[Rfam]
RNA sequence: AUACUUACCUGGACGGGGUCAAUGGGCGAUCAUGAAUGCCCAUGGCCUAGGUUGGUGACCUUCAUUACACUUUGGAGAGGUGCCUGCCUAAGGUCGAUCCAAGUGGUUGAGCCUACGUCAUAAUUUGUGGAAGCAGGGGCCUGCGUUCGCGUGGCCAUUA
Numbered sequence: 001a002u003a004c005u006u007a008c009c010u011g012g013a014c015g016g017g018g019u020c021a022a023u024g025g026g027c028g029a030u031c032a033u034g035a036a037u038g039c040c041c042a043u044g045g046c047c048u049a050g051g052u053u054g055g056u057g058a059c060c061u062u063c064a065u066u067a068c069a070c071u072u073u074g075g076a077g078a079g080g081u082g083c084c085u086g087c088c089u090a091a092g093g094u095c096g097a098u099c100c101a102a103g104u105g106g107u108u109g110a111g112c113c114u115a116c117g118u119c120a121u122a123a124u125u126u127g128u129g130g131a132a133g134c135a136g137g138g139g140c141c142u143g144c145g146u147u148c149g150c151g152u153g154g155c156c157a158u159u160a
Base pairs, nucleotide, nucleotide: 012119013118014117015116016048017047018046019045020044021043023042024041025040026039027038049089050088051087053086055083056082057081059079061077062075063074091114092113093112094110095109096108098106099105135159136158138156139155142153143152144151145150
Rfam assigns this 160-nucleotide sequence from Capsicum baccatum to the family "U1 spliceosomal RNA".
Pairs were carried over by alignment from the consensus structure, which is taken from published work.
The match comes from Rfam's covariance-model search (123 bits).
On this family, see Katsamba et al., J Biol Chem 2001: "Two functionally distinct steps mediate high affinity binding of U1A protein to U1 hairpin II RNA".